Shown here is an 81-nucleotide RNA sequence from Albula goreensis, a member of the family "mir-459 microRNA precursor family".
[Rfam]
RNA sequence: CCUCCUGCUGUCAGUAACAAGGAUUCAUCCUGUUGUAAAGUUCUGACCCAGCAGGGAAUCUCUGUUACUGGGGGUGAGGGU
Numbered sequence: 001c002c003u004c005c006u007g008c009u010g011u012c013a014g015u016a017a018c019a020a021g022g023a024u025u026c027a028u029c030c031u032g033u034u035g036u037a038a039a040g041u042u043c044u045g046a047c048c049c050a051g052c053a054g055g056g057a058a059u060c061u062c063u064g065u066u067a068c069u070g071g072g073g074g075u076g077a078g079g080g081u
Stems, first nucleotide, its partner, number of pairs: 011071009021061006029055007

The family's consensus secondary structure was predicted with RNAalifold. Its family is annotated with miRNA-mediated post-transcriptional gene silencing and RISC complex in the Gene Ontology. Lineage of the source: Eukaryota > Deuterostomia > Teleostei > Albuliformes > Albula. Rfam 15.1 lists 114 matches to the family in 95 species. The match comes from Rfam's covariance-model search (87 bits).